The family of this 87-nucleotide RNA sequence from Sporomusa acidovorans is "c-di-GMP-I riboswitch aptamer". The family's consensus secondary structure is taken from published work. Its family is annotated with cyclic-di-GMP binding in the Gene Ontology. The match comes from Rfam's covariance-model search (91 bits).
RNA sequence: AAAUUAAAUUGGCAAACCUUCCGAAAGGAAGGGACGCAAAGCCAUGGGUCUAAAGAUGUAAUCAUCUAUGAUAGCCAGGUUGCAUAA
Numbered sequence: 001a002a003a004u005u006a007a008a009u010u011g012g013c014a015a016a017c018c019u020u021c022c023g024a025a026a027g028g029a030a031g032g033g034a035c036g037c038a039a040a041g042c043c044a045u046g047g048g049u050c051u052a053a054a055g056a057u058g059u060a061a062u063c064a065u066c067u068a069u070g071a072u073a074g075c076c077a078g079g080u081u082g083c084a085u086a087a
Base pairs, nucleotide, nucleotide: 012037013036017032018031019030020029021028022027040081041080042079043078045077046076047075048072049071050070055066056065057064058063